Rfam assigns this 89-nucleotide RNA from Fimbriiglobus ruber to the family "SAH (S-adenosyl-L-homocysteine) riboswitch aptamer".
The base pairs follow the family's consensus structure, which is taken from published work.
RNA sequence: GUCUUCGAGGGGCGCUGCAACGGGACGCAUUGGCGUACUUGCCAGGCUCGAUGAGGUGGCUUACUACCGUGCAACGGCGCCCGUUCAUC
Numbered sequence: 001g002u003c004u005u006c007g008a009g010g011g012g013c014g015c016u017g018c019a020a021c022g023g024g025a026c027g028c029a030u031u032g033g034c035g036u037a038c039u040u041g042c043c044a045g046g047c048u049c050g051a052u053g054a055g056g057u058g059g060c061u062u063a064c065u066a067c068c069g070u071g072c073a074a075c076g077g078c079g080c081c082c083g084u085u086c087a088u089c
Stems, first nucleotide, its partner, number of pairs: 002054002005051004021041004